[Rfam]
SAM riboswitch aptamer (S box leader): a 118-nucleotide sequence from Brevibacillus sp. SYP-B805. A search with the family's covariance model found it, with a score of 92 bits. The organism belongs to Brevibacillus, within Bacteria. The base pairs follow the family's consensus structure, which is taken from published work.
RNA sequence: UUCUUAUCCAGAGAGGCGGAGGGACUGGCCCAAUGAUGCCCGGCAACCAAUCACCUGAGCAUGUUCAGGGAGAUACGGUGCUAAUUCCUGCAGAGUGAAACACUCUGAAAGAUGAGAA
Numbered sequence: 001u002u003c004u005u006a007u008c009c010a011g012a013g014a015g016g017c018g019g020a021g022g023g024a025c026u027g028g029c030c031c032a033a034u035g036a037u038g039c040c041c042g043g044c045a046a047c048c049a050a051u052c053a054c055c056u057g058a059g060c061a062u063g064u065u066c067a068g069g070g071a072g073a074u075a076c077g078g079u080g081c082u083a084a085u086u087c088c089u090g091c092a093g094a095g096u097g098a099a100a101c102a103c104u105c106u107g108a109a110a111g112a113u114g115a116g117a118a
Stems, first nucleotide, its partner, number of pairs: 001118008013041001015040003021031003025090001027088002042082004047078002049074001051072001086110001091107006